[Rfam]
RNA sequence: UGGUGCCCAAUGUGGGGCUUGAUACUGGGGGCAUCUCAUGAGGGAGACAACGGAAAAAGGAAGGACUGCACUCAUUCAAUUUCGAGUAGUUCAGAGACGUGUCGCAGGAGCCUGCUGCGACCGAACCGAAGGUAAGUUGUGCCGUCUGAUCAUGGGGCAAGAAUUGAGCCAGCAUCAGAUUUAUGUCAAGCAACUGAGAGAGGCUCUAAAGACACGAGGAGUAAAGGUUAGGACUGCAGAUUUAUUUCAUUUCUUUGAUUUUGUAAAGGACAUUUGUCCCU
Numbered sequence: 001u002g003g004u005g006c007c008c009a010a011u012g013u014g015g016g017g018c019u020u021g022a023u024a025c026u027g028g029g030g031g032c033a034u035c036u037c038a039u040g041a042g043g044g045a046g047a048c049a050a051c052g053g054a055a056a057a058a059g060g061a062a063g064g065a066c067u068g069c070a071c072u073c074a075u076u077c078a079a080u081u082u083c084g085a086g087u088a089g090u091u092c093a094g095a096g097a098c099g100u101g102u103c104g105c106a107g108g109a110g111c112c113u114g115c116u117g118c119g120a121c122c123g124a125a126c127c128g129a130a131g132g133u134a135a136g137u138u139g140u141g142c143c144g145u146c147u148g149a150u151c152a153u154g155g156g157g158c159a160a161g162a163a164u165u166g167a168g169c170c171a172g173c174a175u176c177a178g179a180u181u182u183a184u185g186u187c188a189a190g191c192a193a194c195u196g197a198g199a200g201a202g203g204c205u206c207u208a209a210a211g212a213c214a215c216g217a218g219g220a221g222u223a224a225a226g227g228u229u230a231g232g233a234c235u236g237c238a239g240a241u242u243u244a245u246u247u248c249a250u251u252u253c254u255u256u257g258a259u260u261u262u263g264u265a266a267a268g269g270a271c272a273u274u275u276g277u278c279c280c281u
Base pairs, nucleotide, nucleotide: 006031007030008029012025013024014023036050039047088133090131091129092128098123099122103119104118105117106116107115140159141158142157145156146155147154148153165208166207168204169203170202215257216256217255218254219253220252221251225243226242227241228240229239266281268279269278270277271276
RNA: Mason-Pfizer monkey virus packaging signal
Organism: Nannospalax galili